[Rfam]
RNA: mir-160 microRNA precursor family
RNA sequence: AUAUGCCUGGCUCCCUGUAUGCCAUCAGCAAGUUCCGCCCUCAGAUAGGGUGGCCUAUGCCGAUGGCGUACAGGGAGCCAAGCAUGU
Numbered sequence: 001a002u003a004u005g006c007c008u009g010g011c012u013c014c015c016u017g018u019a020u021g022c023c024a025u026c027a028g029c030a031a032g033u034u035c036c037g038c039c040c041u042c043a044g045a046u047a048g049g050g051u052g053g054c055c056u057a058u059g060c061c062g063a064u065g066g067c068g069u070a071c072a073g074g075g076a077g078c079c080a081a082g083c084a085u086g087u
Base pairs, nucleotide, nucleotide: 001087002086003085004084005083006082008080009079010078011077012076013075014074016072017071018070019069020068021067022066023065024064028060029059